[Rfam]
RNA sequence: AUCUGAUAGUCUGGUCGAAAGAUUCAUAAAUGAAUCUUUCGACCAGACUAUCCAUUUUUAUUAUUGUAAUGGAUAAAGAUACAAAC
Numbered sequence: 001a002u003c004u005g006a007u008a009g010u011c012u013g014g015u016c017g018a019a020a021g022a023u024u025c026a027u028a029a030a031u032g033a034a035u036c037u038u039u040c041g042a043c044c045a046g047a048c049u050a051u052c053c054a055u056u057u058u059u060a061u062u063a064u065u066g067u068a069a070u071g072g073a074u075a076a077a078g079a080u081a082c083a084a085a086c
Base pairs, nucleotide, nucleotide: 005052006051007050008049009048010047011046012045013044014043015042016041017040018039019038020037021036022035023034024033025032026031
RNA: Plastid-psbM 3UTR RNA